The family of this 136-nucleotide RNA sequence from Amphiprion ocellaris is "Small nucleolar RNA SNORA22". The match comes from Rfam's covariance-model search (90 bits). By type it is an H/ACA-box small nucleolar RNA. Gene Ontology terms of the family: nucleolus and RNA processing. ACA22 is a member of the H/ACA class of snoRNA that guide the sites of modification of uridines to pseudouridines. The source organism's lineage runs through Eukaryota, Vertebrata, Gnathostomata, Percomorphaceae and Amphiprion.
RNA sequence: UUGCACAGCGAACACCCAGAGAUGCUACCGUGGCUCUCUCUGGCCUAUAAUGUCUGUGCUACACUAACUCUGAUCUUUUCCUCUGCAUUAGGAGAGUUUUGUCUCUCCUACAUGUAUUCAGUUGAUCAGAACAUUC
Numbered sequence: 001u002u003g004c005a006c007a008g009c010g011a012a013c014a015c016c017c018a019g020a021g022a023u024g025c026u027a028c029c030g031u032g033g034c035u036c037u038c039u040c041u042g043g044c045c046u047a048u049a050a051u052g053u054c055u056g057u058g059c060u061a062c063a064c065u066a067a068c069u070c071u072g073a074u075c076u077u078u079u080c081c082u083c084u085g086c087a088u089u090a091g092g093a094g095a096g097u098u099u100u101g102u103c104u105c106u107c108c109u110a111c112a113u114g115u116a117u118u119c120a121g122u123u124g125a126u127c128a129g130a131a132c133a134u135u136c
Stems, first nucleotide, its partner, number of pairs: 003059006010053001014048001016043005022037001024034003061076001063074001065072002083121003086114003090109007